Shown here is a 117-nucleotide RNA from Plantimonas leprariae, a member of the family "Alphaproteobacterial ar14". By type it is a small RNA. For this family Rfam cites "A survey of sRNA families in alpha-proteobacteria" (del Val et al., RNA Biol, 2012). Rfam describes the family as follows. Smr14C2 was renamed NfeR1 (Nodule Formation Efficiency RNA) highly expressed in salt stress and during the symbiotic interaction on legume roots. Lineage of the source: Bacteria > Pseudomonadati > Alphaproteobacteria > Hyphomicrobiales > Plantimonas. It scores 85 bits against the family's covariance model. Its family is annotated with biological process involved in symbiotic interaction in the Gene Ontology.
[Rfam]
RNA sequence: GAGCUUCGUCCCGGCCCAUCCUCCUCCCAAGGCCGCGACGAACCGGCCUGCGGCAUCCUCCUCCCAGCCGUAGGCCAUGCAUGACGCCCGCCGGUCCUCCCCCGGCGGGCGUUUUCG
Number, nucleotide and partner (000 for none) at each position: 001g000002a000003g000004c000005u000006u000007c040008g039009u038010c000011c000012c035013g034014g033015c032016c031017c000018a000019u000020c000021c000022u000023c000024c000025u000026c000027c000028c000029a000030a000031g016032g015033c014034c013035g012036c000037g000038a009039c008040g007041a000042a000043c000044c000045g076046g075047c074048c073049u072050g071051c070052g069053g068054c067055a000056u000057c000058c000059u000060c000061c000062u000063c000064c000065c000066a000067g054068c053069c052070g051071u050072a049073g048074g047075c046076c045077a000078u000079g000080c000081a000082u000083g000084a112085c111086g110087c109088c108089c107090g106091c105092c104093g103094g102095u000096c000097c000098u000099c000100c000101c000102c094103c093104g092105g091106c090107g089108g088109g087110c086111g085112u084113u000114u000115u000116c000117g000